[Rfam]
RNA sequence: GGGGCAUCCAUGAUGAUUAAAUUUCUUGUUAUCCUUGCACAUUGACUGCUAGUGAUGAAAAUUAGUGGGGAAAUUUUUAUCAUAGUUGUCC
Numbered sequence: 001g002g003g004g005c006a007u008c009c010a011u012g013a014u015g016a017u018u019a020a021a022u023u024u025c026u027u028g029u030u031a032u033c034c035u036u037g038c039a040c041a042u043u044g045a046c047u048g049c050u051a052g053u054g055a056u057g058a059a060a061a062u063u064a065g066u067g068g069g070g071a072a073a074u075u076u077u078u079a080u081c082a083u084a085g086u087u088g089u090c091c
Base pairs, nucleotide, nucleotide: 002091003090004089005088006087008085
RNA: Small nucleolar RNA snoR26